This 103-nucleotide RNA sequence from Sphingopyxis sp. MG belongs to the Rfam family "Manganese Mn2+ riboswitch aptamer (yybP-ykoY)". A search with the family's covariance model found it, with a score of 48 bits. NCBI's taxonomy places the organism under Bacteria, Pseudomonadota, Alphaproteobacteria, Sphingopyxidaceae, Sphingopyxis.
RNA sequence: CCGCCGCCGUCAUCUGGGGAGUAGCCAGCCGUCGAUCCGACGGGCCACCGCGUCAACAUACUCGGCCGAGAGGUCGUGGCGCGAUGGAAGCGGGACACCGCUU
Numbered sequence: 001c002c003g004c005c006g007c008c009g010u011c012a013u014c015u016g017g018g019g020a021g022u023a024g025c026c027a028g029c030c031g032u033c034g035a036u037c038c039g040a041c042g043g044g045c046c047a048c049c050g051c052g053u054c055a056a057c058a059u060a061c062u063c064g065g066c067c068g069a070g071a072g073g074u075c076g077u078g079g080c081g082c083g084a085u086g087g088a089a090g091c092g093g094g095a096c097a098c099c100g101c102u103u
Base pairs, nucleotide, nucleotide: 029043030042031041046086047085049083050082051081052080053079054078055077063076064075065074066073067072088103089102090101091100092099093098